[Rfam]
RNA sequence: CAGCUUGACUUUCCACCAUUAGUAAAAUAUAAUCCGGCCGUGGUCUUCACUAUGGCAAUAAAGGUUGCUUAGAAUAGGCGUUUUGGACCCGAGGGCAGUGCUCGGCAUCUCCACUGUAUGUUGCGGGGAUGAAACAGGUUAGACAGGCGCAGUAAAGAAGUUAGCCGUUGCUCGGUGGGAAUUCCAGCCGUAUAAGUGGGUCAUUUUUAUAAGUGCAAACGAUAAUCUCGUUGCCGCUAAUGACAACUUUGACGCUAACGCUUUAGCAGCUGCAGCUUAAUGUGUCUUUAGCGCGGUUCGGGGGCUUACCGGGCAACAGAAAAGCCCCCACG
Numbered sequence: 001c002a003g004c005u006u007g008a009c010u011u012u013c014c015a016c017c018a019u020u021a022g023u024a025a026a027a028u029a030u031a032a033u034c035c036g037g038c039c040g041u042g043g044u045c046u047u048c049a050c051u052a053u054g055g056c057a058a059u060a061a062a063g064g065u066u067g068c069u070u071a072g073a074a075u076a077g078g079c080g081u082u083u084u085g086g087a088c089c090c091g092a093g094g095g096c097a098g099u100g101c102u103c104g105g106c107a108u109c110u111c112c113a114c115u116g117u118a119u120g121u122u123g124c125g126g127g128g129a130u131g132a133a134a135c136a137g138g139u140u141a142g143a144c145a146g147g148c149g150c151a152g153u154a155a156a157g158a159a160g161u162u163a164g165c166c167g168u169u170g171c172u173c174g175g176u177g178g179g180a181a182u183u184c185c186a187g188c189c190g191u192a193u194a195a196g197u198g199g200g201u202c203a204u205u206u207u208u209a210u211a212a213g214u215g216c217a218a219a220c221g222a223u224a225a226u227c228u229c230g231u232u233g234c235c236g237c238u239a240a241u242g243a244c245a246a247c248u249u250u251g252a253c254g255c256u257a258a259c260g261c262u263u264u265a266g267c268a269g270c271u272g273c274a275g276c277u278u279a280a281u282g283u284g285u286c287u288u289u290a291g292c293g294c295g296g297u298u299c300g301g302g303g304g305c306u307u308a309c310c311g312g313g314c315a316a317c318a319g320a321a322a323a324g325c326c327c328c329c330a331c332g
Stems, first nucleotide, its partner, number of pairs: 040050004054172005064165003067161004079149003083146003089105005106131007173190004179202002182200003294311004300329006
RNA: Alphaproteobacteria transfer-messenger RNA